RNA: chrB-a RNA
RNA sequence: GCCAUGGGGUUUGCGAUAUCCCCGUGAGGCUUAGGCCGAAUGAUCGCAUCCUUGUCACAAAACAAAGGGUGCAGCAUG
Numbered sequence: 001g002c003c004a005u006g007g008g009g010u011u012u013g014c015g016a017u018a019u020c021c022c023c024g025u026g027a028g029g030c031u032u033a034g035g036c037c038g039a040a041u042g043a044u045c046g047c048a049u050c051c052u053u054g055u056c057a058c059a060a061a062a063c064a065a066a067g068g069g070u071g072c073a074g075c076a077u078g
Stems, first nucleotide, its partner, number of pairs: 005024005046072006